[Rfam]
RNA sequence: UGGAGACUGUUCCUCCUAUUGCCCUCAUGCCUGGCACUAGGAUUUUGGGUCAUCAUAAGUUAAAAUUAGAUUUUCUUCACUCAGAGGAUAUAAGGAUAAUGGGAUUAUCUGUCUGUGCUGAGAUUUGCAGAACCAAAGACUU
Numbered sequence: 001u002g003g004a005g006a007c008u009g010u011u012c013c014u015c016c017u018a019u020u021g022c023c024c025u026c027a028u029g030c031c032u033g034g035c036a037c038u039a040g041g042a043u044u045u046u047g048g049g050u051c052a053u054c055a056u057a058a059g060u061u062a063a064a065a066u067u068a069g070a071u072u073u074u075c076u077u078c079a080c081u082c083a084g085a086g087g088a089u090a091u092a093a094g095g096a097u098a099a100u101g102g103g104a105u106u107a108u109c110u111g112u113c114u115g116u117g118c119u120g121a122g123a124u125u126u127g128c129a130g131a132a133c134c135a136a137a138g139a140c141u142u
Base pairs, nucleotide, nucleotide: 001055002054003053005051006050007049008048014042015041016040017039018038020036021035022034023033069134071132072131073130074129081121082120083119084118088116089115090114094110095109096108097107098106